[Rfam]
RNA sequence: CAGGAGCUGGUCAAUGUCAUUACCCCUGAACUUGGAUAUGGGAAUACCGGUGCAGA
Numbered sequence: 001c002a003g004g005a006g007c008u009g010g011u012c013a014a015u016g017u018c019a020u021u022a023c024c025c026c027u028g029a030a031c032u033u034g035g036a037u038a039u040g041g042g043a044a045u046a047c048c049g050g051u052g053c054a055g056a
Stems, first nucleotide, its partner, number of pairs: 006051006017041004024035002
Rfam assigns this 56-nucleotide RNA sequence to the family "Transposase-1 RNA". It is one of the family's seed sequences. Pairs were carried over by alignment from the consensus structure, which is taken from published work. By type it is a small RNA.